[Rfam]
RNA sequence: GGGGGUGAUCGGUUUCGACGGUGGUCGUGCUUCGAGGAGAAGCGGGCCGAGGAUGCAGACUUAUCUCGUAAACGAUGUCUGCAAACCAAUAGGUGCCGAUAACAAGCGCACCGACUUCGCACUCGCCGCCUGAGCGAGUCCUGAAGUCCGUCAGCCCGGAGUAGCUCUCGCUCCGGUUCCUGGCGUCAGCUAGAGAGCCACUGCUCACAGCAUUCGUCAUCGGUGCUGCGGGGACUUUUAGAUGACUGGGCCUGUCAGCAGCUUGUCUGCGUGCGUGCUGGGGCCGAGAAAAUCCACUAGCAGACUGCGCCCGGAGAAGUCCUCGAUCGGCGUCACCGGACCGGGGUUCGAUUCCCCGCACCUCCACCA
Numbered sequence: 001g002g003g004g005g006u007g008a009u010c011g012g013u014u015u016c017g018a019c020g021g022u023g024g025u026c027g028u029g030c031u032u033c034g035a036g037g038a039g040a041a042g043c044g045g046g047c048c049g050a051g052g053a054u055g056c057a058g059a060c061u062u063a064u065c066u067c068g069u070a071a072a073c074g075a076u077g078u079c080u081g082c083a084a085a086c087c088a089a090u091a092g093g094u095g096c097c098g099a100u101a102a103c104a105a106g107c108g109c110a111c112c113g114a115c116u117u118c119g120c121a122c123u124c125g126c127c128g129c130c131u132g133a134g135c136g137a138g139u140c141c142u143g144a145a146g147u148c149c150g151u152c153a154g155c156c157c158g159g160a161g162u163a164g165c166u167c168u169c170g171c172u173c174c175g176g177u178u179c180c181u182g183g184c185g186u187c188a189g190c191u192a193g194a195g196a197g198c199c200a201c202u203g204c205u206c207a208c209a210g211c212a213u214u215c216g217u218c219a220u221c222g223g224u225g226c227u228g229c230g231g232g233g234a235c236u237u238u239u240a241g242a243u244g245a246c247u248g249g250g251c252c253u254g255u256c257a258g259c260a261g262c263u264u265g266u267c268u269g270c271g272u273g274c275g276u277g278c279u280g281g282g283g284c285c286g287a288g289a290a291a292a293u294c295c296a297c298u299a300g301c302a303g304a305c306u307g308c309g310c311c312c313g314g315a316g317a318a319g320u321c322c323u324c325g326a327u328c329g330g331c332g333u334c335a336c337c338g339g340a341c342c343g344g345g346g347u348u349c350g351a352u353u354c355c356c357c358g359c360a361c362c363u364c365c366a367c368c369a
Stems, first nucleotide, its partner, number of pairs: 001365007019338007028329001032326007043313005048068005054083007119141001121139006149185006156176007164198006204232003208228005216247001249285005256280003261274002265305004271297001342358005
Source information:
transfer-messenger RNA: a 369-nucleotide sequence from Flavimobilis marinus. The organism belongs to Flavimobilis, within Bacteria.